[Rfam]
A member of the RNA family "c-di-AMP riboswitch aptamer (ydaO/yuaA leader)" from Leptolyngbya sp. ES-bin-22, 125 nucleotides long. The organism belongs to Leptolyngbya, within Bacteria. It scores 66 bits against the family's covariance model.
RNA sequence: AACUGAAUCCAGCCCUUUAACUCAAGCGGAGGAACCAAACUAUUGGGGCUAAUCUCGCGUUUCGAGAGAGACACCUUCCAGUCUUAGCCCGUCAGCUAACUCCGUCGGCAAUGGGAGGAGUAACC
Numbered sequence: 001a002a003c004u005g006a007a008u009c010c011a012g013c014c015c016u017u018u019a020a021c022u023c024a025a026g027c028g029g030a031g032g033a034a035c036c037a038a039a040c041u042a043u044u045g046g047g048g049c050u051a052a053u054c055u056c057g058c059g060u061u062u063c064g065a066g067a068g069a070g071a072c073a074c075c076u077u078c079c080a081g082u083c084u085u086a087g088c089c090c091g092u093c094a095g096c097u098a099a100c101u102c103c104g105u106c107g108g109c110a111a112u113g114g115g116a117g118g119a120g121u122a123a124c125c
Stems, first nucleotide, its partner, number of pairs: 003108002008025001026105006036045002046090003054066004069084004